[Rfam]
RNA sequence: AAGAGUAUGAUUUAAUUGGUUAAAAUAAGAAGCUUCAACCUUCUGUAUCCGGGAUCGAGACCUGGUACUCUUG
Number, nucleotide and partner (000 for none) at each position: 001a072002a071003g070004a069005g068006u067007a066008u000009g000010a026011u025012u024013u023014a000015a000016u000017u000018g000019g000020u000021u000022a000023a013024a012025a011026u010027a000028a044029g043030a042031a041032g040033c000034u000035u000036c000037a000038a000039c000040c032041u031042u030043c029044u028045g000046u000047a000048u000049c065050c064051g063052g062053g061054a000055u000056c000057g000058a000059g000060a000061c053062c052063u051064g050065g049066u007067a006068c005069u004070c003071u002072u001073g000
RNA: tRNA